RNA: mir-2209 microRNA precursor family
Organism: Caenorhabditis elegans
RNA sequence: AGUGUAACCACUCUUCUCCUUCCGAGUAUUGAUUAUCGAGAAGAGAUCAGCGGUUACACUACA
Numbered sequence: 001a002g003u004g005u006a007a008c009c010a011c012u013c014u015u016c017u018c019c020u021u022c023c024g025a026g027u028a029u030u031g032a033u034u035a036u037c038g039a040g041a042a043g044a045g046a047u048c049a050g051c052g053g054u055u056a057c058a059c060u061a062c063a
Stems, first nucleotide, its partner, number of pairs: 001060009011050002015046004020042003023038003